[Rfam]
RNA sequence: AGGUCAACUCUAACUUUAGCAUCUUUCUUUUAAGCAAAGUAGAAAGUGCUAUCAAGUUGGGGUAGAUGUU
Number, nucleotide and partner (000 for none) at each position: 001a000002g000003g000004u066005c065006a000007a063008c062009u061010c060011u059012a000013a057014c056015u054016u000017u000018a050019g049020c048021a047022u000023c046024u045025u000026u043027c042028u041029u000030u000031u000032a000033a000034g000035c000036a000037a000038a000039g000040u000041a028042g027043a026044a000045a024046g023047u021048g020049c019050u018051a000052u000053c000054a015055a000056g014057u013058u000059g011060g010061g009062g008063u007064a000065g005066a004067u000068g000069u000070u000